[Rfam]
RNA sequence: GAAAGAUACGUCAUUGAGUGCAGCGUUGAUGUCGAAACUUAUUUCAAAGUUCUAACUUUUCUCAUCAGCGCUUCAUUCAAUCACGUUUCUU
Numbered sequence: 001g002a003a004a005g006a007u008a009c010g011u012c013a014u015u016g017a018g019u020g021c022a023g024c025g026u027u028g029a030u031g032u033c034g035a036a037a038c039u040u041a042u043u044u045c046a047a048a049g050u051u052c053u054a055a056c057u058u059u060u061c062u063c064a065u066c067a068g069c070g071c072u073u074c075a076u077u078c079a080a081u082c083a084c085g086u087u088u089c090u091u
Base pairs, nucleotide, nucleotide: 006088008086009085010084011083013081014080015079016078017077018076019075020074022072023071024070025069026068027067028066030064031063
This 91-nucleotide RNA sequence from Cucumis melo belongs to the Rfam family "MIR397 microRNA precursor family". A reference for the family is Mica et al. (2009), "High throughput approaches reveal splicing of primary microRNA transcripts and tissue specific expression of mature microRNAs in Vitis vinifera", BMC Genomics.